[Rfam]
RNA: Rhizobiales sRNA Atu_At1
RNA sequence: GAUCGCGCCGUGUCAAUCGGACGCGGCGGAGAUGGUGGACGCAGCGGUUUUUCCGAUUUCUCGCUGCGGGGAACGAAAUCCCAGGCGAGCACCCAACCCGUCCGGCGC
Numbered sequence: 001g002a003u004c005g006c007g008c009c010g011u012g013u014c015a016a017u018c019g020g021a022c023g024c025g026g027c028g029g030a031g032a033u034g035g036u037g038g039a040c041g042c043a044g045c046g047g048u049u050u051u052u053c054c055g056a057u058u059u060c061u062c063g064c065u066g067c068g069g070g071g072a073a074c075g076a077a078a079u080c081c082c083a084g085g086c087g088a089g090c091a092c093c094c095a096a097c098c099c100g101u102c103c104g105g106c107g108c
Base pairs, nucleotide, nucleotide: 006107007106008105009104011023012022013021014020025102026101027100028099029098034093035092036091037090040068041067042066043065044064045063046062069082070081071080
Dot-bracket structure: .....((((.((((.....)))).(((((....((((..(((((((...............)))))))(((........))).......))))....))))).)))).